[Rfam]
RNA sequence: CGCUUAUAGGGAAAGGCAGAGGGAAUAGACCCGAAGAAGCCUUAGCAACCUGUCUCUGGACAAGGUGCUAAAUUCUACUCCGCAAGGGGAAAGAUAAGCC
Numbered sequence: 001c002g003c004u005u006a007u008a009g010g011g012a013a014a015g016g017c018a019g020a021g022g023g024a025a026u027a028g029a030c031c032c033g034a035a036g037a038a039g040c041c042u043u044a045g046c047a048a049c050c051u052g053u054c055u056c057u058g059g060a061c062a063a064g065g066u067g068c069u070a071a072a073u074u075c076u077a078c079u080c081c082g083c084a085a086g087g088g089g090a091a092a093g094a095u096a097a098g099c100c
Stems, first nucleotide, its partner, number of pairs: 002099006013043005021032003026077004044069004049065002051062004073092001078089004

The record is a 100-nucleotide RNA sequence from Sphingobacterium sp. SGG-5, which matches "SAM riboswitch aptamer (S box leader)" in Rfam. NCBI's taxonomy places the organism under Bacteria, Pseudomonadati, Sphingobacteriales, Sphingobacteriaceae, Sphingobacterium. Its Rfam clan is "SAM clan". Rfam's curators write: The SAM riboswitch is found upstream of a number of genes which code for proteins involved in methionine or cysteine biosynthesis in Gram-positive bacteria.